[Rfam]
RNA: mir-574 microRNA precursor family
Organism: Cnephaeus nilssonii
RNA sequence: AGGCCUGGAGAAAGAAGCAGGGUCUGAUCCAUAGCCUCUGUGGCAGUUGUUGAUCAGCCCUUGCCUCUCUCUUUCGUUCCA
Numbered sequence: 001a002g003g004c005c006u007g008g009a010g011a012a013a014g015a016a017g018c019a020g021g022g023u024c025u026g027a028u029c030c031a032u033a034g035c036c037u038c039u040g041u042g043g044c045a046g047u048u049g050u051u052g053a054u055c056a057g058c059c060c061u062u063g064c065c066u067c068u069c070u071c072u073u074u075c076g077u078u079c080c081a
Stems, first nucleotide, its partner, number of pairs: 008073004013068003017064004022059001024057006032049004